A member of the RNA family "SAM riboswitch aptamer (S box leader)" from Actinomyces glycerinitolerans, 103 nucleotides long. The match comes from Rfam's covariance-model search (46 bits). The base pairs follow the family's consensus structure, which is taken from published work. Clan: SAM clan.
RNA sequence: ACACCAUCCAGAGCGGCUGAGAGACCUGGCUCGUCGACGCCGCAGCAACCACGCCGUCGGCAUGCGUCCGGCGGUGCGGUGCUCCCGCCAGGACCGAUGGAAG
Numbered sequence: 001a002c003a004c005c006a007u008c009c010a011g012a013g014c015g016g017c018u019g020a021g022a023g024a025c026c027u028g029g030c031u032c033g034u035c036g037a038c039g040c041c042g043c044a045g046c047a048a049c050c051a052c053g054c055c056g057u058c059g060g061c062a063u064g065c066g067u068c069c070g071g072c073g074g075u076g077c078g079g080u081g082c083u084c085c086c087g088c089c090a091g092g093a094c095c096g097a098u099g100g101a102a103g
Stems, first nucleotide, its partner, number of pairs: 004100005013043005021032003026091004044083004049079002051075002087095001